Rfam assigns this 75-nucleotide RNA from Gopherus evgoodei to the family "mir-252 microRNA precursor family". The match comes from Rfam's covariance-model search (48 bits). Rfam links the family to the GO terms miRNA-mediated post-transcriptional gene silencing and RISC complex. A reference for the family is Li et al. (2009), "Direct sequencing and expression analysis of a large number of miRNAs in Aedes aegypti and a multi-species survey of novel mosquito miRNAs", BMC Genomics.
RNA sequence: UGUGAUAUUUAAGUAGUCCCGCUACAGUUGUAGAAUUUUUAGGAACAACUGUAGUGGGACUACUUAAAUAUCACA
Numbered sequence: 001u002g003u004g005a006u007a008u009u010u011a012a013g014u015a016g017u018c019c020c021g022c023u024a025c026a027g028u029u030g031u032a033g034a035a036u037u038u039u040u041a042g043g044a045a046c047a048a049c050u051g052u053a054g055u056g057g058g059a060c061u062a063c064u065u066a067a068a069u070a071u072c073a074c075a
Stems, first nucleotide, its partner, number of pairs: 001075007010066010024052007
Dot-bracket structure: (((((((..((((((((((....(((((((...............)))))))....))))))))))..)))))))